[Rfam]
RNA sequence: CCUAACUUUACAACCAAGGAUGGGAAUGACGGAACCAUGUUUCUUGAAACCAUCCCGUCAAUACUCCUGCAUGCGUCGUGACUGACAGGUCACGGGGUUUGAAGUACAGGUAGAUUCGGCAGAACGAAGGCUGGAGCCACUUUUGAUAAGAAGGUAUGCCAACGGAUAUGCCGCACGGCUGAAAA
Numbered sequence: 001c002c003u004a005a006c007u008u009u010a011c012a013a014c015c016a017a018g019g020a021u022g023g024g025a026a027u028g029a030c031g032g033a034a035c036c037a038u039g040u041u042u043c044u045u046g047a048a049a050c051c052a053u054c055c056c057g058u059c060a061a062u063a064c065u066c067c068u069g070c071a072u073g074c075g076u077c078g079u080g081a082c083u084g085a086c087a088g089g090u091c092a093c094g095g096g097g098u099u100u101g102a103a104g105u106a107c108a109g110g111u112a113g114a115u116u117c118g119g120c121a122g123a124a125c126g127a128a129g130g131c132u133g134g135a136g137c138c139a140c141u142u143u144u145g146a147u148a149a150g151a152a153g154g155u156a157u158g159c160c161a162a163c164g165g166a167u168a169u170g171c172c173g174c175a176c177g178g179c180u181g182a183a184a185a
Base pairs, nucleotide, nucleotide: 018055019054020053021052022051023050031045032044034042056177057176058175066110067109068108069107070101071100073098074097076095077094078093079092080091081090082089083088117173118172119171120170121169125164126163129160130159131150132149138145
The family of this 185-nucleotide sequence from Alteribacillus persepolensis is "Group II catalytic intron D1-D4-5". The literature on the family includes a 2001 paper in Trends Genet by Bonen and Vogel, "The ins and outs of group II introns". The match comes from Rfam's covariance-model search (80 bits). The organism belongs to Alteribacillus, within Bacteria. Gene Ontology term of the family: Group II intron splicing. From the family's description: Group II introns are found in rRNA, tRNA and mRNA of organelles in fungi, plants and protists, and also in mRNA in bacteria.